A member of the RNA family "Ribosomal protein L10 leader" from Paucilactobacillus wasatchensis, 115 nucleotides long. Pairs were carried over by alignment from the consensus structure, which was predicted with CMfinder. Rfam links the family to the GO term regulation of gene expression. NCBI's taxonomy places the organism under Bacteria, Bacilli, Lactobacillales, Lactobacillaceae, Paucilactobacillus. This family is a putative r-protein leader autoregulatory structure found in B. subtilis and other low-GC Gram-positive bacteria. It is annotated as a cis-regulatory leader. A search with the family's covariance model found it, with a score of 72 bits.
RNA sequence: GUUCAAGUGAAUAUUUCACCUAAGACUCAGGUGGCGUAAGCCUCAAUCAUACCUGCCGAGGAAUUAAAAUUCUUUCUCUAUGUCUUGGUGGACAUAGGGAUUUUUUUAACAAAAA
Numbered sequence: 001g002u003u004c005a006a007g008u009g010a011a012u013a014u015u016u017c018a019c020c021u022a023a024g025a026c027u028c029a030g031g032u033g034g035c036g037u038a039a040g041c042c043u044c045a046a047u048c049a050u051a052c053c054u055g056c057c058g059a060g061g062a063a064u065u066a067a068a069a070u071u072c073u074u075u076c077u078c079u080a081u082g083u084c085u086u087g088g089u090g091g092a093c094a095u096a097g098g099g100a101u102u103u104u105u106u107u108a109a110c111a112a113a114a115a
Base pairs, nucleotide, nucleotide: 028055029054030053031052032051033042034041035040075100076099077098078097079096080095081094082093083092084091